[Rfam]
Shown here is an 85-nucleotide sequence from Propithecus coquereli, a member of the family "GAIT element". The family's RNA type in Rfam is cis-regulatory element. The organism belongs to Propithecus, within Eukaryota. A reference for the family is Sampath et al. (2003), "Transcript-selective translational silencing by gamma interferon is directed by a novel structural element in the ceruloplasmin mRNA 3' untranslated region", Mol Cell Biol. Gene Ontology term of the family: negative regulation of translation. Rfam's curators write: This family represents a cis-acting element in the 3'-UTR of the ceruloplasmin (Cp) gene called gamma interferon inhibitor of translation (GAIT). Pairs were carried over by alignment from the consensus structure, which is taken from published work.

RNA sequence: GUACGUGAAAGUGUUGAAUAGAAUGUUUACUAUGGAAUGACUAUAAACAUUAAAUAAUUAAAAAAAUAAAAGACUGGAAACUGAC
Numbered sequence: 001g002u003a004c005g006u007g008a009a010a011g012u013g014u015u016g017a018a019u020a021g022a023a024u025g026u027u028u029a030c031u032a033u034g035g036a037a038u039g040a041c042u043a044u045a046a047a048c049a050u051u052a053a054a055u056a057a058u059u060a061a062a063a064a065a066a067u068a069a070a071a072g073a074c075u076g077g078a079a080a081c082u083g084a085c
Stems, first nucleotide, its partner, number of pairs: 001085002005081002010075003022051006033043003
Dot-bracket structure: ((..((...(((.........((((((.....(((.....)))..)))))).....................)))....))..))